[Rfam]
RNA sequence: GGCAGUUCUUGGGUGACGUACCCUGGAAUCGGGCUCCCUCUUUUCUGGUUCCAAGUGCAUCACCUGGAAACUGCU
Number, nucleotide and partner (000 for none) at each position: 001g000002g074003c073004a000005g071006u070007u069008c000009u067010u066011g065012g064013g063014u062015g061016a060017c000018g000019u057020a056021c055022c000023c000024u000025g052026g051027a050028a049029u048030c047031g046032g045033g044034c000035u000036c000037c000038c000039u000040c000041u000042u000043u000044u033045c032046u031047g030048g029049u028050u027051c026052c025053a000054a000055g021056u020057g019058c000059a000060u016061c015062a014063c013064c012065u011066g010067g009068a000069a007070a006071c005072u000073g003074c002075u000
mir-9223 microRNA precursor family: a 75-nucleotide RNA from Pipistrellus kuhlii. A search with the family's covariance model found it, with a score of 66 bits. Pairs were carried over by alignment from the consensus structure, which was predicted with RNAalifold. The source organism's lineage runs through Eukaryota, Eumetazoa, Amniota, Eutheria and Pipistrellus.